[Rfam]
RNA sequence: UCAAUAUCAGGCGAUGGAGCUCGCCUUCAAACAUUGCUGUUGCAAUUGAUGGCUCCUGCUGGCCU
Number, nucleotide and partner (000 for none) at each position: 001u000002c000003a000004a000005u000006a000007u000008c000009a000010g025011g024012c023013g022014a000015u000016g056017g055018a054019g053020c052021u051022c013023g012024c011025c010026u000027u000028c000029a000030a000031a000032c000033a046034u045035u044036g043037c000038u000039g000040u000041u000042g000043c036044a035045a034046u033047u000048g000049a000050u000051g021052g020053c019054u018055c017056c016057u000058g000059c000060u000061g000062g000063c000064c000065u000
Shown here is a 65-nucleotide RNA from Peptoclostridium litorale, a member of the family "Fluoride riboswitch aptamer (crcB RNA motif)". A search with the family's covariance model found it, with a score of 43 bits. The source organism's lineage runs through Bacteria, Bacillota, Clostridia, Peptostreptococcales and Peptoclostridium litorale. Gene Ontology terms of the family: response to fluoride and positive regulation of gene expression.